Description:
Rfam assigns this 89-nucleotide sequence from Agrococcus sp. SGAir0287 to the family "Glycine riboswitch aptamer". Its family is annotated with glycine biosynthetic process in the Gene Ontology. Taxonomically the source falls in Agrococcus (Bacteria, Bacillati, Actinomycetes, Microbacteriaceae).

RNA sequence: GCAGCCCAUGCGGAAGAGUCGCCUCGCGCGACACCGAAGGAGCAAGCACUCCCCGCCAACCUCUCAGGUCCGAAGACCGCAUGCGCAGG
Numbered sequence: 001g002c003a004g005c006c007c008a009u010g011c012g013g014a015a016g017a018g019u020c021g022c023c024u025c026g027c028g029c030g031a032c033a034c035c036g037a038a039g040g041a042g043c044a045a046g047c048a049c050u051c052c053c054c055g056c057c058a059a060c061c062u063c064u065c066a067g068g069u070c071c072g073a074a075g076a077c078c079g080c081a082u083g084c085g086c087a088g089g
Stems, first nucleotide, its partner, number of pairs: 007083007019031004033069003036065002040063003046056002